[Rfam]
Record summary:
The family of this 285-nucleotide RNA from Rhynchophorus ferrugineus is "Nuclear RNase P". It scores 147 bits against the family's covariance model. Rfam classes the family as a ribozyme. The source organism's lineage runs through Eukaryota, Protostomia, Pancrustacea, Allotriocarida and Rhynchophorus. Gene Ontology terms of the family: tRNA processing, ribonuclease P activity and ribonuclease P complex.
RNA sequence: UCUGUGGCAAUCUCGCACCUGGAGCUUACAAACAGUGUACUUGUUACACUUUAUGCAACGGGAAGGUCUGAGACAGGCACUUACUCUCUAGCAGGGAGCUUGCUUAACUAGCAAGGCAAGGGAACCAGAAAUUUGCUAACUCAGCACCAAAGCCUAGGAUUGCUUUAUAGCAUAGGUGUUGUGUUUGGGUUAGUUGGAAGCCCUUGUAGCCAGCAAUUUUAGUUUAAUCUGCGAGUUAAUAGUUCAGUAGCUAUUAAAACUCAAUUCAGACUAGUCUGCUACAGG
Number, nucleotide and partner (000 for none) at each position: 001u285002c284003u283004g282005u000006g000007g279008c278009a277010a000011u000012c235013u234014c233015g232016c231017a230018c000019c000020u000021g059022g000023a000024g056025c055026u000027u000028a000029c000030a000031a000032a000033c000034a000035g049036u048037g047038u046039a045040c000041u000042u000043g000044u000045u039046a038047c037048a036049c035050u000051u000052u000053a000054u000055g025056c024057a000058a000059c021060g000061g000062g000063a000064a000065g000066g000067u000068c269069u268070g267071a266072g265073a000074c000075a000076g211077g210078c209079a000080c000081u000082u000083a000084c098085u097086c096087u095088c094089u000090a000091g000092c000093a000094g088095g087096g086097a085098g084099c115100u114101u113102g112103c111104u110105u000106a000107a000108c000109u000110a104111g103112c102113a101114a100115g099116g207117c206118a205119a204120g203121g202122g201123a000124a000125c000126c000127a000128g000129a000130a000131a000132u000133u000134u000135g000136c193137u192138a191139a190140c189141u000142c000143a000144g000145c000146a000147c000148c000149a000150a000151a000152g000153c000154c000155u000156a000157g000158g000159a000160u000161u000162g000163c000164u000165u000166u000167a000168u000169a000170g000171c000172a000173u000174a000175g000176g000177u000178g000179u000180u000181g000182u000183g000184u000185u000186u000187g000188g000189g140190u139191u138192a137193g136194u000195u000196g000197g000198a000199a000200g000201c122202c121203c120204u119205u118206g117207u116208a000209g078210c077211c076212a000213g000214c000215a000216a000217u000218u000219u000220u000221a000222g000223u000224u000225u000226a000227a000228u000229c000230u017231g016232c015233g014234a013235g012236u257237u256238a255239a254240u253241a252242g251243u000244u000245c000246a000247g000248u000249a000250g000251c242252u241253a240254u239255u238256a237257a236258a000259a000260c000261u000262c000263a000264a000265u072266u071267c070268a069269g068270a000271c000272u000273a000274g000275u000276c000277u009278g008279c007280u000281a000282c004283a003284g002285g001